[Rfam]
The family of this 82-nucleotide RNA from Plectus sambesii is "SmY spliceosomal RNA".
RNA sequence: GUGCCUCUUAUGACUAACGCAGGGCCUUUUUAAGACCCGUAGUCCAGUUUUUGCAGGCUCAGUGGGGACUACUCAUUGGGCU
Numbered sequence: 001g002u003g004c005c006u007c008u009u010a011u012g013a014c015u016a017a018c019g020c021a022g023g024g025c026c027u028u029u030u031u032a033a034g035a036c037c038c039g040u041a042g043u044c045c046a047g048u049u050u051u052u053g054c055a056g057g058c059u060c061a062g063u064g065g066g067g068a069c070u071a072c073u074c075a076u077u078g079g080g081c082u
Stems, first nucleotide, its partner, number of pairs: 022038003026034003057081009
Dot-bracket structure: .....................(((.(((...))).)))..................(((((((((.......))))))))).
Overview:
A reference for the family is MacMorris et al. (2007), "A novel family of C. elegans snRNPs contains proteins associated with trans-splicing", RNA.